[Rfam]
RNA sequence: UCAGAUAAAGCUAAACCUGUCGUGAGGCAGGGGCGGAAAACUGCGGGUCUUUUUUAAUGAGACAGCCGGGUUGCCUGAA
Numbered sequence: 001u002c003a004g005a006u007a008a009a010g011c012u013a014a015a016c017c018u019g020u021c022g023u024g025a026g027g028c029a030g031g032g033g034c035g036g037a038a039a040a041c042u043g044c045g046g047g048u049c050u051u052u053u054u055u056a057a058u059g060a061g062a063c064a065g066c067c068g069g070g071u072u073g074c075c076u077g078a079a
Stems, first nucleotide, its partner, number of pairs: 001079001003076002011036002016031006034065001039072004044068003047063003

About this RNA:
c-di-GMP-I-GGC riboswitch aptamer: a 79-nucleotide RNA from Desulfonema magnum. It scores 70 bits against the family's covariance model. The base pairs follow the family's consensus structure, which is taken from published work.